[Rfam]
RNA sequence: UUAAUAAAUACACAUCAGCAAUAUAGAACUGAGGGCAAACCUCGGAGCCUUUUUAAAAAUUAUGCCUGGUGUACCCUAUGAUGAAUACCAUGAUGUCUCAUAUAUUCUGGUCAUGGCUCGGCGUUUUUUCUGUGUCGAUCCUUUUCUGGUCUCAGCUCAUCUGGCUGGCCUUCCUGUUUAUCCAAAACCUCGCUUCGGCGGGGUAUAAGUUUUC
Numbered sequence: 001u002u003a004a005u006a007a008a009u010a011c012a013c014a015u016c017a018g019c020a021a022u023a024u025a026g027a028a029c030u031g032a033g034g035g036c037a038a039a040c041c042u043c044g045g046a047g048c049c050u051u052u053u054u055a056a057a058a059a060u061u062a063u064g065c066c067u068g069g070u071g072u073a074c075c076c077u078a079u080g081a082u083g084a085a086u087a088c089c090a091u092g093a094u095g096u097c098u099c100a101u102a103u104a105u106u107c108u109g110g111u112c113a114u115g116g117c118u119c120g121g122c123g124u125u126u127u128u129u130c131u132g133u134g135u136c137g138a139u140c141c142u143u144u145u146c147u148g149g150u151c152u153c154a155g156c157u158c159a160u161c162u163g164g165c166u167g168g169c170c171u172u173c174c175u176g177u178u179u180a181u182c183c184a185a186a187a188c189c190u191c192g193c194u195u196c197g198g199c200g201g202g203g204u205a206u207a208a209g210u211u212u213u214c
Base pairs, nucleotide, nucleotide: 010072011071012070013069018063029045030044031043032042033041110151112149115141118138119137120136121135122134123133152168153167154166156164157163187204188203189202190201191200192199193198

Source information
The family of this 214-nucleotide RNA is "Enterobacterial sRNA STnc180". Pairs were carried over by alignment from the consensus structure, which was predicted with RNAalifold. The sequence is in the family's curated seed alignment. It is annotated as a small RNA.